[Rfam]
Shown here is a 63-nucleotide RNA sequence from Neisseria meningitidis, a member of the family "porB RNA".

RNA sequence: CAUUUAUAGUUUCAGACAUGAAAUCGCCGAACCCCUCGGCGGUAGGUGUAAAGCCUAAGCGGA
Numbered sequence: 001c002a003u004u005u006a007u008a009g010u011u012u013c014a015g016a017c018a019u020g021a022a023a024u025c026g027c028c029g030a031a032c033c034c035c036u037c038g039g040c041g042g043u044a045g046g047u048g049u050a051a052a053g054c055c056u057a058a059g060c061g062g063a
Base pairs, nucleotide, nucleotide: 023043024042025041026040027039028038029037
Taxonomically the source falls in Neisseria meningitidis (Bacteria, Pseudomonadati, Pseudomonadota, Neisseriaceae).